[Rfam]
About this RNA
6A RNA: a 52-nucleotide RNA sequence. It is annotated as a small RNA.
RNA sequence: AGAUUUGGUCGUAGAACGCGACCAAGUAAAAUAAAAGAAAAGUUCACUGAGG
Numbered sequence: 001a002g003a004u005u006u007g008g009u010c011g012u013a014g015a016a017c018g019c020g021a022c023c024a025a026g027u028a029a030a031a032u033a034a035a036a037g038a039a040a041a042g043u044u045c046a047c048u049g050a051g052g
Base pairs, nucleotide, nucleotide: 006024007023008022009021010020011019014045015044016043017042